[Rfam]
RNA sequence: UUUUAUUUUGCGUUAAGGAUAGUAGCGGCAUCCUUUUUUGAUUUUACAAAAAAGAUAUAGCGAAUAGCCUGCUGUUUU
Numbered sequence: 001u002u003u004u005a006u007u008u009u010g011c012g013u014u015a016a017g018g019a020u021a022g023u024a025g026c027g028g029c030a031u032c033c034u035u036u037u038u039u040g041a042u043u044u045u046a047c048a049a050a051a052a053a054g055a056u057a058u059a060g061c062g063a064a065u066a067g068c069c070u071g072c073u074g075u076u077u078u
Stems, first nucleotide, its partner, number of pairs: 016070003020066002025061002030056003036051005
Rfam assigns this 78-nucleotide sequence from Ichthyenterobacterium magnum to the family "Flavo-1 RNA". Taxonomically the source falls in Ichthyenterobacterium (Bacteria, Pseudomonadati, Bacteroidota, Flavobacteriaceae). The family has 201 seed sequences and 7,497 matches in Rfam 15.1. The base pairs follow the family's consensus structure, which is taken from published work. By type it is a small RNA.